RNA sequence: UCCCUAUAGACGGACUGAACGGCACCAGGUAGCUAGAACCUGGUAGGGA
Numbered sequence: 001u002c003c004c005u006a007u008a009g010a011c012g013g014a015c016u017g018a019a020c021g022g023c024a025c026c027a028g029g030u031a032g033c034u035a036g037a038a039c040c041u042g043g044u045a046g047g048g049a
Stems, first nucleotide, its partner, number of pairs: 001049007011021002017033001023036001026042005
RNA: DUF2693-FD RNA